The record is a 79-nucleotide sequence from Peptidiphaga gingivicola, which matches "ZMP/ZTP riboswitch aptamer (pfl RNA motif)" in Rfam. Its family is annotated with regulation of purine nucleotide biosynthetic process and one-carbon metabolic process in the Gene Ontology. The family's consensus secondary structure is taken from published work.
[Rfam]
RNA sequence: GAAGGCGUCGGCGACUGGCGUUGGAUGGGAUUGACCAUCGGGGAGCGAAGUCUCGGCGUCGCACGCCUGGGCGCCGGAA
Number, nucleotide and partner (000 for none) at each position: 001g000002a000003a053004g052005g051006c050007g000008u048009c047010g000011g046012c045013g000014a000015c042016u041017g067018g066019c065020g064021u063022u000023g000024g000025a038026u037027g036028g035029g000030a000031u000032u000033g000034a000035c028036c027037a026038u025039c000040g000041g016042g015043g000044a000045g012046c011047g009048a008049a000050g006051u005052c004053u003054c000055g000056g074057c073058g072059u071060c070061g000062c000063a021064c020065g019066c018067c017068u000069g000070g060071g059072c058073g057074c056075c000076g000077g000078a000079a000